[Rfam]
A member of the RNA family "Ribosomal protein L20 leader" from Paenibacillus montaniterrae, 158 nucleotides long. This family is a putative r-protein leader autoregulatory structure found in B. subtilis and other low-GC Gram-positive bacteria. It is located in the 5' untranslated regions of mRNAs encoding initiation factor 3 followed by ribosomal proteins L35 and L20 (infC-rpmI-rplT). It scores 61 bits against the family's covariance model. The family's consensus secondary structure was predicted with CMfinder. By type it is a cis-regulatory leader.

RNA sequence: UUGCACAAGUAGAAGCGCCCGCUUCUCACCUGAUUCGGCUCGGCUGACUGGUUUGCGAUGAUGUAAGCAUAGCGAAACAUAUGAAAUCAAUAUGUUUUUAUGAAUACAUUACGUUUAUGAGAAUGCGGGUUCUAUCGAGCCCGCAUUUUAUUAUUUUU
Numbered sequence: 001u002u003g004c005a006c007a008a009g010u011a012g013a014a015g016c017g018c019c020c021g022c023u024u025c026u027c028a029c030c031u032g033a034u035u036c037g038g039c040u041c042g043g044c045u046g047a048c049u050g051g052u053u054u055g056c057g058a059u060g061a062u063g064u065a066a067g068c069a070u071a072g073c074g075a076a077a078c079a080u081a082u083g084a085a086a087u088c089a090a091u092a093u094g095u096u097u098u099u100a101u102g103a104a105u106a107c108a109u110u111a112c113g114u115u116u117a118u119g120a121g122a123a124u125g126c127g128g129g130u131u132c133u134a135u136c137g138a139g140c141c142c143g144c145a146u147u148u149u150a151u152u153a154u155u156u157u158u
Stems, first nucleotide, its partner, number of pairs: 011026006028052003035047005124145009